[Rfam]
RNA sequence: AUUAUGAUACUUGCGGUUUGAACGCUUCACAGCAUUGACCGCCGCGCCAUCAGCAUGGGGCGAGGUUGAGAUACCUAUGA
Numbered sequence: 001a002u003u004a005u006g007a008u009a010c011u012u013g014c015g016g017u018u019u020g021a022a023c024g025c026u027u028c029a030c031a032g033c034a035u036u037g038a039c040c041g042c043c044g045c046g047c048c049a050u051c052a053g054c055a056u057g058g059g060g061c062g063a064g065g066u067u068g069a070g071a072u073a074c075c076u077a078u079g080a
Base pairs, nucleotide, nucleotide: 012077013042014041015040016039017038018037043062044061045060047058048057049056063076064075065074

pemK RNA: an 80-nucleotide RNA from Clostridium sp. CAG:1024. The organism belongs to Clostridium, within Bacteria. By type it is a cis-regulatory element.